[Rfam]
RNA sequence: CGAGUAAGUCAGGCAAUCGCUGCUGAUGUAAAGUCAGGAGAGGAAAGUCCGAGCUCCAUAGGGCAGGGUGCUGGAUAACUCCCAGUCGAGGUGACUCGAAGGAAAGUGCAACAGAGAGAUACCGCCUUAAGGAUUUUCCUUAAGGUAAGGGUGGAAAGGUGAGGUAAGAGCUCACCAGCGCGAUGGCGACUUCGCGGCUAUGUAAACCCCACCUGGAGCAAGAUCGGAGAGGCAUUAUGGGACUGCCCGUCCCGCCUCGUGGUGUAUCGCUGGAGCCUAUUGGUAACAAUAGGCCUAGAUAGAUGAUUGCUUAAUACAGAACUCGGCUUAUAGACUUGGUCGCAUA
Numbered sequence: 001c002g003a004g005u006a007a008g009u010c011a012g013g014c015a016a017u018c019g020c021u022g023c024u025g026a027u028g029u030a031a032a033g034u035c036a037g038g039a040g041a042g043g044a045a046a047g048u049c050c051g052a053g054c055u056c057c058a059u060a061g062g063g064c065a066g067g068g069u070g071c072u073g074g075a076u077a078a079c080u081c082c083c084a085g086u087c088g089a090g091g092u093g094a095c096u097c098g099a100a101g102g103a104a105a106g107u108g109c110a111a112c113a114g115a116g117a118g119a120u121a122c123c124g125c126c127u128u129a130a131g132g133a134u135u136u137u138c139c140u141u142a143a144g145g146u147a148a149g150g151g152u153g154g155a156a157a158g159g160u161g162a163g164g165u166a167a168g169a170g171c172u173c174a175c176c177a178g179c180g181c182g183a184u185g186g187c188g189a190c191u192u193c194g195c196g197g198c199u200a201u202g203u204a205a206a207c208c209c210c211a212c213c214u215g216g217a218g219c220a221a222g223a224u225c226g227g228a229g230a231g232g233c234a235u236u237a238u239g240g241g242a243c244u245g246c247c248c249g250u251c252c253c254g255c256c257u258c259g260u261g262g263u264g265u266a267u268c269g270c271u272g273g274a275g276c277c278u279a280u281u282g283g284u285a286a287c288a289a290u291a292g293g294c295c296u297a298g299a300u301a302g303a304u305g306a307u308u309g310c311u312u313a314a315u316a317c318a319g320a321a322c323u324c325g326g327c328u329u330a331u332a333g334a335c336u337u338g339g340u341c342g343c344a345u346a
Stems, first nucleotide, its partner, number of pairs: 001342003005338006011331001012311007020040002023037005045329003049326005054218004061248004066214005071085004086100001087098004101209002106207002108203003122150002124146009158176006178198001179196005185190001222268003229258005239253005275294008